mir-217 microRNA precursor family: a 92-nucleotide RNA from Eptatretus burgeri.
Its family is annotated with RISC complex and miRNA-mediated post-transcriptional gene silencing in the Gene Ontology.
A reference for the family is Lim et al. (2003), "Vertebrate microRNA genes", Science.
Pairs were carried over by alignment from the consensus structure, which was predicted with RNAalifold.
Lineage of the source: Eukaryota > Metazoa > Bilateria > Myxiniformes > Eptatretus.
RNA sequence: AUGUAACUGACGUUGCAGAUACUGCAUUAGGAACUGAUUGGGUUGUAGCACUCACCAUCAGUUUCUUGUGCAUUGCCUGCUGCAUCGAUGUU
Numbered sequence: 001a002u003g004u005a006a007c008u009g010a011c012g013u014u015g016c017a018g019a020u021a022c023u024g025c026a027u028u029a030g031g032a033a034c035u036g037a038u039u040g041g042g043u044u045g046u047a048g049c050a051c052u053c054a055c056c057a058u059c060a061g062u063u064u065c066u067u068g069u070g071c072a073u074u075g076c077c078u079g080c081u082g083c084a085u086c087g088a089u090g091u092u
Stems, first nucleotide, its partner, number of pairs: 023072005029066009039057003
Dot-bracket structure: ......................(((((.(((((((((.(((.............)))))))))))).)))))....................